A member of the RNA family "mir-8364 microRNA precursor family" from Pristionchus pacificus, 61 nucleotides long. The family has 13 seed sequences and 3,320 matches in Rfam 15.1. The match comes from Rfam's covariance-model search (73 bits). Rfam links the family to the GO terms RISC complex and miRNA-mediated post-transcriptional gene silencing. The organism belongs to Pristionchus, within Eukaryota.
RNA sequence: UCUUCAUUUUCCACACUCUCUCACCGGUCAGACAGACGAGAGAGUGUGCAGAAUGAAUAGA
Numbered sequence: 001u002c003u004u005c006a007u008u009u010u011c012c013a014c015a016c017u018c019u020c021u022c023a024c025c026g027g028u029c030a031g032a033c034a035g036a037c038g039a040g041a042g043a044g045u046g047u048g049c050a051g052a053a054u055g056a057a058u059a060g061a
Stems, first nucleotide, its partner, number of pairs: 001059001003057005010050001012048006019041004